[Rfam]
TPP riboswitch aptamer (THI element): a 102-nucleotide sequence from Candidatus Accumulibacter aalborgensis. Taxonomically the source falls in Candidatus Accumulibacter (Bacteria, Pseudomonadati, Pseudomonadota, Betaproteobacteria). Pairs were carried over by alignment from the consensus structure, which is taken from published work.
RNA sequence: CGUCCACGUUGGGGGUGCCGGACUGUUGUCUGGGUGCGGCUGAGAGAGUCCCUUCGAACCUGUACGGGUCAUGCCGUCGUAGGGAAGCGGAAGGCGUCUGCU
Numbered sequence: 001c002g003u004c005c006a007c008g009u010u011g012g013g014g015g016u017g018c019c020g021g022a023c024u025g026u027u028g029u030c031u032g033g034g035u036g037c038g039g040c041u042g043a044g045a046g047a048g049u050c051c052c053u054u055c056g057a058a059c060c061u062g063u064a065c066g067g068g069u070c071a072u073g074c075c076g077u078c079g080u081a082g083g084g085a086a087g088c089g090g091a092a093g094g095c096g097u098c099u100g101c102u
Stems, first nucleotide, its partner, number of pairs: 007089004011053004016047001017040004059083004064077004